[Rfam]
RNA sequence: UGGGUAGUAUCGUUUUGAGCUGCACCAUAAGUGUUGAUAAAUUAUUCUUCUGCUCAUAUCAAUUUUUGAAAGAGACAGGAUG
Numbered sequence: 001u002g003g004g005u006a007g008u009a010u011c012g013u014u015u016u017g018a019g020c021u022g023c024a025c026c027a028u029a030a031g032u033g034u035u036g037a038u039a040a041a042u043u044a045u046u047c048u049u050c051u052g053c054u055c056a057u058a059u060c061a062a063u064u065u066u067u068g069a070a071a072g073a074g075a076c077a078g079g080a081u082g
Base pairs, nucleotide, nucleotide: 001027002026003025004023005022006021007020008019010018011017050078051077052076053074054073055072057070059069060068061067
Rfam assigns this 82-nucleotide RNA from Clostridium kluyveri to the family "pan motif". The base pairs follow the family's consensus structure, which is taken from published work.